R2 RNA element: a 203-nucleotide RNA from Pararge aegeria. A reference for the family is Ruschak et al. (2004), "Secondary structure models of the 3' untranslated regions of diverse R2 RNAs", RNA. By type it is a cis-regulatory element. This family represents the 3' UTR region of the R2 retrotransposable element. This family is known to interact with the R2-encoded reverse transcriptase in a reaction known as target primed reverse transcription (TPRT). NCBI's taxonomy places the organism under Eukaryota, Panarthropoda, Eumetabola, Satyrinae, Pararge aegeria.
[Rfam]
RNA sequence: AUUUAAGCAAAAUUUCAAAAUGAUAGUUCUGUUCUGUUCUCAUCUGAAGUCAUGCGUAUUGUGAUUCCAAGAAGGACGGUCGGGGUAUGUAGAAGGUUUUAGUCCGUAGGUCGCGGAGUGUUGUACUCUAAGCGAAGUCGGGCAUGUUAAGAGGUAUUAAUCAGAUCUGUUGACAUCCAUGAGGAUUUCUUCCUACAGUAAUA
Numbered sequence: 001a002u003u004u005a006a007g008c009a010a011a012a013u014u015u016c017a018a019a020a021u022g023a024u025a026g027u028u029c030u031g032u033u034c035u036g037u038u039c040u041c042a043u044c045u046g047a048a049g050u051c052a053u054g055c056g057u058a059u060u061g062u063g064a065u066u067c068c069a070a071g072a073a074g075g076a077c078g079g080u081c082g083g084g085g086u087a088u089g090u091a092g093a094a095g096g097u098u099u100u101a102g103u104c105c106g107u108a109g110g111u112c113g114c115g116g117a118g119u120g121u122u123g124u125a126c127u128c129u130a131a132g133c134g135a136a137g138u139c140g141g142g143c144a145u146g147u148u149a150a151g152a153g154g155u156a157u158u159a160a161u162c163a164g165a166u167c168u169g170u171u172g173a174c175a176u177c178c179a180u181g182a183g184g185a186u187u188u189c190u191u192c193c194u195a196c197a198g199u200a201a202u203a
Base pairs, nucleotide, nucleotide: 001050002049003048004047058202059201060200061199062198088197089196090195091194092193095190096189102143103142104141105140106139111135112134113133114132115129116128117127118126119125145175146174147173148172149171150170